[Rfam]
RNA sequence: AAUGAGAGAAUGAUAAAUCAGAUUUUUCCUCUUGAUUUUCAGCUUUUUCUUCCUAAAAGAAAGUUCAAAUCAAAUUAAAAAACUAAAAAUUCGAAAGAAAAAUCUAAUUUAUCAUUCUCCCAUU
Numbered sequence: 001a002a003u004g005a006g007a008g009a010a011u012g013a014u015a016a017a018u019c020a021g022a023u024u025u026u027u028c029c030u031c032u033u034g035a036u037u038u039u040c041a042g043c044u045u046u047u048u049c050u051u052c053c054u055a056a057a058a059g060a061a062a063g064u065u066c067a068a069a070u071c072a073a074a075u076u077a078a079a080a081a082a083c084u085a086a087a088a089a090u091u092c093g094a095a096a097g098a099a100a101a102a103u104c105u106a107a108u109u110u111a112u113c114a115u116u117c118u119c120c121c122a123u124u
Base pairs, nucleotide, nucleotide: 001124002123003122004121006119007118008117009116010115011114012113013112014111015110016109017108018107020105021104022103024102025101026100027099029097030096032094033093034092035091037089038088039087042084045081046080047079048078
The record is a 124-nucleotide RNA sequence from Gossypium gossypioides, which matches "MIR7504 microRNA precursor family" in Rfam. The base pairs follow the family's consensus structure, which was predicted with RNAalifold. Its family is annotated with RISC complex and miRNA-mediated post-transcriptional gene silencing in the Gene Ontology.